[Rfam]
RNA: Aggregatibacter sRNA 22
Organism: Gammaproteobacteria bacterium LSUCC0112
RNA sequence: GUUCGACUGAUUGCAACGCAAUCAGGACGCCUGCCAAGGCGCCCCGCAGGGGUGAGCAAUCCGCCGCAGCGGAUUGCAAAUCAAUCAUGCCGGU
Numbered sequence: 001g002u003u004c005g006a007c008u009g010a011u012u013g014c015a016a017c018g019c020a021a022u023c024a025g026g027a028c029g030c031c032u033g034c035c036a037a038g039g040c041g042c043c044c045c046g047c048a049g050g051g052g053u054g055a056g057c058a059a060u061c062c063g064c065c066g067c068a069g070c071g072g073a074u075u076g077c078a079a080a081u082c083a084a085u086c087a088u089g090c091c092g093g094u
Stems, first nucleotide, its partner, number of pairs: 007025008028041005042052004056077009082089002